The family of this 91-nucleotide sequence from Metarhizium anisopliae is "tRNA".
By type it is a transfer RNA.
A search with the family's covariance model found it, with a score of 50 bits.
Lineage of the source: Eukaryota > saccharomyceta > Pezizomycotina > Sordariomycetes > Metarhizium anisopliae.
[Rfam]
RNA sequence: GGGGGGCUGGCGCAACGGUAGCGCGUCGGAUUCCAGUUCAGCUUCAACAUGAGCUUCCCGAAGGUUACCGGUUCAAAUCCGGUGUCCCUCA
Numbered sequence: 001g002g003g004g005g006g007c008u009g010g011c012g013c014a015a016c017g018g019u020a021g022c023g024c025g026u027c028g029g030a031u032u033c034c035a036g037u038u039c040a041g042c043u044u045c046a047a048c049a050u051g052a053g054c055u056u057c058c059c060g061a062a063g064g065u066u067a068c069c070g071g072u073u074c075a076a077a078u079c080c081g082g083u084g085u086c087c088c089u090c091a
Stems, first nucleotide, its partner, number of pairs: 001090007010024004026061004067083005
Dot-bracket structure: (((((((..((((.......)))).((((............................)))).....(((((.......)))))))))))).